[Rfam]
RNA sequence: GGCGAUAAACGGCGAUCGUAAUAAACGGCCCGGACCCGGGGGCAGUACCCGGCGGCUCCACCAGAGGGCGUCCUCCCGACACCGGGGGCGGCUUGCGGCGGGGCCGAAACAGCAUCGACGGACGUGUAGAGGAUCGGCUUUUGCUCGGGUGACCUCCGUUAUUUGGUCAACCAUGAAUAGUUGCCAACGACAACAACAUGGAAGGUGUCGCCCUCGCUGCGUAA
Number, nucleotide and partner (000 for none) at each position: 001g145002g144003c143004g142005a141006u000007a000008a000009a000010c000011g000012g000013c000014g135015a134016u133017c132018g000019u000020a000021a000022u000023a000024a000025a000026c124027g123028g000029c000030c121031c120032g119033g000034a000035c000036c052037c051038g050039g049040g048041g000042g000043c000044a000045g000046u000047a000048c040049c039050c038051g037052g036053c106054g105055g104056c103057u102058c101059c100060a000061c000062c000063a000064g000065a000066g000067g000068g000069c000070g000071u000072c000073c000074u000075c000076c000077c000078g000079a000080c000081a000082c000083c000084g000085g000086g000087g000088g000089c000090g000091g000092c000093u000094u000095g000096c000097g000098g000099c000100g059101g058102g057103g056104c055105c054106g053107a000108a000109a000110c000111a000112g000113c000114a000115u000116c000117g000118a000119c032120g031121g030122a000123c027124g026125u000126g000127u000128a000129g000130a000131g000132g017133a016134u015135c014136g000137g000138c000139u000140u000141u005142u004143g003144c002145u001146c158147g157148g156149g000150u000151g000152a000153c000154c000155u000156c148157c147158g146159u000160u000161a000162u000163u000164u000165g000166g000167u000168c000169a000170a000171c000172c000173a000174u000175g000176a000177a000178u000179a000180g000181u000182u000183g000184c000185c000186a000187a000188c000189g000190a000191c000192a000193a000194c000195a000196a000197c000198a000199u000200g000201g000202a000203a000204g000205g000206u000207g000208u000209c000210g000211c000212c000213c000214u000215c000216g000217c000218u000219g000220c000221g000222u000223a000224a000
The record is a 224-nucleotide sequence from Parvularcula dongshanensis, which matches "permuted transfer-messenger RNA" in Rfam.
The family's consensus secondary structure is taken from published work.
Rfam classes the family as a non-coding RNA gene.